[Rfam]
The record is a 91-nucleotide sequence from Laribacter hongkongensis, which matches "Neisseria metabolic switch regulator b (RcoF1/NgncR163)" in Rfam. About the family: Sibling sRNA described and independently named in three publications. NgncR163 is N. gonorrhoeae while the others are N. meningitidis RNAs. RcoF1 stands for: RNA regulating colonization factor 1. The base pairs follow the family's consensus structure, which was predicted with RNAfold.

RNA sequence: CCAUUGAGAUGCAGCAACUGCUUCUUGAUAGUUUCUCCUCUAUUUCUCCUUUGUAGAUUGCGGCGCGGCCCUCACGGACUGCGCCAUUUUU
Numbered sequence: 001c002c003a004u005u006g007a008g009a010u011g012c013a014g015c016a017a018c019u020g021c022u023u024c025u026u027g028a029u030a031g032u033u034u035c036u037c038c039u040c041u042a043u044u045u046c047u048c049c050u051u052u053g054u055a056g057a058u059u060g061c062g063g064c065g066c067g068g069c070c071c072u073c074a075c076g077g078a079c080u081g082c083g084c085c086a087u088u089u090u091u
Stems, first nucleotide, its partner, number of pairs: 003029007011021001039057005062085007070077002